[Rfam]
RNA: Bacterial RNase P class A
RNA sequence: GAAGUCGGCCGGGCAGCCGCUGCGCCUGUUCGCAGGCGUGGAGGAAAGUCCGGGCUCCACAGGGCAGGGUGCCAGGUAACCCCUGGGCGGCGUGAGCCGACGGAAAGUGCCACAGAGAACAGACCGCCGAUGGCCCGGUUCGCCGGGCACAGGCAAGGGUGAAAAGGUGCGGUAAGAGCGCACCGCGCGGGUGGCAACACGCCGCGGCACGGUAAACCCCACCCGGAGCAAGACCAAAUAGGGGAGCGCACGUGUGGCCCGCACGGCUCCCGGGUAGGUCGCUGGAGGUGUGCGGUGACGCACACCCAAGAGGAAUGGCUGCUCUCGACAGAACCCGGCUUACAGGCCGACUUCCCCC
Numbered sequence: 001g002a003a004g005u006c007g008g009c010c011g012g013g014c015a016g017c018c019g020c021u022g023c024g025c026c027u028g029u030u031c032g033c034a035g036g037c038g039u040g041g042a043g044g045a046a047a048g049u050c051c052g053g054g055c056u057c058c059a060c061a062g063g064g065c066a067g068g069g070u071g072c073c074a075g076g077u078a079a080c081c082c083c084u085g086g087g088c089g090g091c092g093u094g095a096g097c098c099g100a101c102g103g104a105a106a107g108u109g110c111c112a113c114a115g116a117g118a119a120c121a122g123a124c125c126g127c128c129g130a131u132g133g134c135c136c137g138g139u140u141c142g143c144c145g146g147g148c149a150c151a152g153g154c155a156a157g158g159g160u161g162a163a164a165a166g167g168u169g170c171g172g173u174a175a176g177a178g179c180g181c182a183c184c185g186c187g188c189g190g191g192u193g194g195c196a197a198c199a200c201g202c203c204g205c206g207g208c209a210c211g212g213u214a215a216a217c218c219c220c221a222c223c224c225g226g227a228g229c230a231a232g233a234c235c236a237a238a239u240a241g242g243g244g245a246g247c248g249c250a251c252g253u254g255u256g257g258c259c260c261g262c263a264c265g266g267c268u269c270c271c272g273g274g275u276a277g278g279u280c281g282c283u284g285g286a287g288g289u290g291u292g293c294g295g296u297g298a299c300g301c302a303c304a305c306c307c308a309a310g311a312g313g314a315a316u317g318g319c320u321g322c323u324c325u326c327g328a329c330a331g332a333a334c335c336c337g338g339c340u341u342a343c344a345g346g347c348c349g350a351c352u353u354c355c356c357c358c
Stems, first nucleotide, its partner, number of pairs: 001354010011343001012323007020041009046341003050338005055228004062260004067224005072086005087101001088099004102219002107217002109213003124158002126154003131149002134146001166184006185208001186206005191200003232280004242271006251265005287306008